The family of this 170-nucleotide RNA sequence from Gluconacetobacter takamatsuzukensis is "FMN riboswitch aptamer (RFN element)". The RFN element is a highly conserved domain that is found frequently in the 5'-untranslated regions of prokaryotic mRNAs that encode for flavin mononucleotide (FMN) biosynthesis and transport proteins. This element is a metabolite-dependent riboswitch that directly binds FMN in the absence of proteins. In Bacillus subtilis, the riboswitch most likely controls gene expression by causing premature transcription termination within the 5' untranslated region of the ribDEAHT operon and precluding access to the ribosome-binding site of ypaA mRNA.The FMN riboswitch structure, reported in present an FMN-bound six-stem junction, adopts a butterfly-like scaffold, stapled together by opposingly directed but nearly identically folded peripheral domains. The source organism's lineage runs through Bacteria, Pseudomonadati, Alphaproteobacteria, Acetobacterales and Gluconacetobacter. The base pairs follow the family's consensus structure, which is taken from published work.
[Rfam]
RNA sequence: UGACGUUCUCGGGGCGGGGUGAAAAUCCCCACCGGCGGUAAUUGCGCCCGGCCAGCGUGCCGGCCGCGCAUAAGCCCGCGAGCGCCCACUUGGCCUUGUGUCGGGUGGGGUCAGCAGACCCGGUGUGAUUCCGGGGCCGACGGUCAUAGUCCGGAUGAGAGAGAACGAUG
Numbered sequence: 001u002g003a004c005g006u007u008c009u010c011g012g013g014g015c016g017g018g019g020u021g022a023a024a025a026u027c028c029c030c031a032c033c034g035g036c037g038g039u040a041a042u043u044g045c046g047c048c049c050g051g052c053c054a055g056c057g058u059g060c061c062g063g064c065c066g067c068g069c070a071u072a073a074g075c076c077c078g079c080g081a082g083c084g085c086c087c088a089c090u091u092g093g094c095c096u097u098g099u100g101u102c103g104g105g106u107g108g109g110g111u112c113a114g115c116a117g118a119c120c121c122g123g124u125g126u127g128a129u130u131c132c133g134g135g136g137c138c139g140a141c142g143g144u145c146a147u148a149g150u151c152c153g154g155a156u157g158a159g160a161g162a163g164a165a166c167g168a169u170g
Stems, first nucleotide, its partner, number of pairs: 004167007017029003031150002033139002035079004074137002082115002119135005141153003